[Rfam]
RNA sequence: UGCGCCGUGGCAAGUCCUACACAACCAGCUCCUGUUGAAUCCUCCAGGGCGGGAACGCAGCAAAGGUAGAUGGUCGUAGCGGUGUGAUGUAGGUAGCUUGCCACUUU
Number, nucleotide and partner (000 for none) at each position: 001u000002g000003c000004g000005c000006c000007g000008u103009g102010g101011c100012a099013a098014g097015u096016c000017c092018u091019a090020c089021a088022c086023a085024a083025c082026c000027a000028g000029c000030u000031c000032c000033u000034g000035u000036u000037g000038a000039a000040u000041c000042c000043u000044c000045c000046a000047g000048g000049g000050c000051g000052g000053g000054a000055a000056c000057g000058c000059a000060g000061c000062a000063a000064a000065g000066g000067u000068a000069g000070a000071u000072g000073g000074u000075c000076g000077u000078a000079g000080c000081g000082g025083u024084g000085u023086g022087a000088u021089g020090u019091a018092g017093g000094u000095a000096g015097c014098u013099u012100g011101c010102c009103a008104c000105u000106u000107u000
Bacteroidales small SRP: a 107-nucleotide RNA from Aequorivita viscosa. Pairs were carried over by alignment from the consensus structure, which is taken from published work. Rfam links the family to the GO terms signal recognition particle, plasma membrane targeting and SRP-dependent cotranslational protein targeting to membrane, signal sequence recognition. It scores 108 bits against the family's covariance model. The organism belongs to Aequorivita, within Bacteria.